[Rfam]
RNA sequence: GCCUUGUGGUUCCUUGAGGCAGCUCAUCCGUGCUGGCUCUUGAGGUUAUUUUGGAUAGGCACACAUUGAAUCUGUGAUUUUAAUGCGUGGAAGCUGGUGUUAAUGUCUAGCUUCCACAGCCCGGUUGCAGAAACAAGA
Numbered sequence: 001g002c003c004u005u006g007u008g009g010u011u012c013c014u015u016g017a018g019g020c021a022g023c024u025c026a027u028c029c030g031u032g033c034u035g036g037c038u039c040u041u042g043a044g045g046u047u048a049u050u051u052u053g054g055a056u057a058g059g060c061a062c063a064c065a066u067u068g069a070a071u072c073u074g075u076g077a078u079u080u081u082a083a084u085g086c087g088u089g090g091a092a093g094c095u096g097g098u099g100u101u102a103a104u105g106u107c108u109a110g111c112u113u114c115c116a117c118a119g120c121c122c123g124g125u126u127g128c129a130g131a132a133a134c135a136a137g138a
Stems, first nucleotide, its partner, number of pairs: 001060004008050001012045006019037001020035004072130001074128006085120002087117004092112006

A member of the RNA family "Small nucleolar RNA SNORA84" from Danionella cerebrum, 138 nucleotides long. The match comes from Rfam's covariance-model search (85 bits). It is annotated as an H/ACA-box small nucleolar RNA. Gene Ontology terms of the family: RNA processing and nucleolus. Pairs were carried over by alignment from the consensus structure, which was predicted with WAR. The source organism's lineage runs through Eukaryota, Opisthokonta, Teleostomi, Otomorpha and Danionella.